Shown here is a 99-nucleotide RNA, a member of the family "wcaG RNA". Pairs were carried over by alignment from the consensus structure, which is taken from published work.
RNA sequence: UUGAGUUUCUUGCUUCUCCCAAAAGCAAGUGGUGCGGAUGGAGGUAACACUCCCGCCCUGUUUCUUGCUUCAGGUAAAGAGCAAGUGGCGUGCAUGAAG
Dot-bracket structure: ........(((((((.......))))))).........(((.((.....)).))).[[[[...((((((.]]]].....))))))..............